[Rfam]
RNA sequence: AAGAUGUUCCGCUGCAAGGAUAUUUUUAGUAAGAGCAUCUG
Numbered sequence: 001a002a003g004a005u006g007u008u009c010c011g012c013u014g015c016a017a018g019g020a021u022a023u024u025u026u027u028a029g030u031a032a033g034a035g036c037a038u039c040u041g
Stems, first nucleotide, its partner, number of pairs: 003039007013031003017027002
A member of the RNA family "Ribosomal protein L19 leader" from Anaerobacillus alkalidiazotrophicus, 41 nucleotides long. A reference for the family is Zengel and Lindahl (1994), "Diverse mechanisms for regulating ribosomal protein synthesis in Escherichia coli", Prog Nucleic Acid Res Mol Biol. The family's RNA type in Rfam is cis-regulatory leader. Rfam describes the family as follows. This family is a putative r-protein leader autoregulatory structure found in B. subtilis and other low-GC Gram-positive bacteria. It is located in the 5' untranslated regions of mRNAs encoding ribosomal protein L19 (rplS).